This 170-nucleotide sequence from Firmicutes bacterium CAG:227 belongs to the Rfam family "Group II catalytic intron D1-D4-3". Group II introns are found in rRNA, tRNA and mRNA of organelles in fungi, plants and protists, and also in mRNA in bacteria. Lineage of the source: Bacteria > Bacillati > Bacillota. Pairs were carried over by alignment from the consensus structure. A search with the family's covariance model found it, with a score of 132 bits.
RNA sequence: AUUAACGUGAGGGGAAUCUGAAGGAAGGUGGAGGCAAAUCUCUGGUCUGACGAACAGAAAUCACAUAAGGCUAUUAUUGAGGACAAGACUGCCAGACAAGUCAAAGUCCAAUAACUACUCGGAAUUAAUGAUAGUAAAUGUGGCAGAUAUAUGGAGAGAAAGAAACGUGU
Numbered sequence: 001a002u003u004a005a006c007g008u009g010a011g012g013g014g015a016a017u018c019u020g021a022a023g024g025a026a027g028g029u030g031g032a033g034g035c036a037a038a039u040c041u042c043u044g045g046u047c048u049g050a051c052g053a054a055c056a057g058a059a060a061u062c063a064c065a066u067a068a069g070g071c072u073a074u075u076a077u078u079g080a081g082g083a084c085a086a087g088a089c090u091g092c093c094a095g096a097c098a099a100g101u102c103a104a105a106g107u108c109c110a111a112u113a114a115c116u117a118c119u120c121g122g123a124a125u126u127a128a129u130g131a132u133a134g135u136a137a138a139u140g141u142g143g144c145a146g147a148u149a150u151a152u153g154g155a156g157a158g159a160a161a162g163a164a165a166c167g168u169g170u
Stems, first nucleotide, its partner, number of pairs: 002015002006011001027170001031166001035162001039157006045148005061143005070135003074131007081109004087102004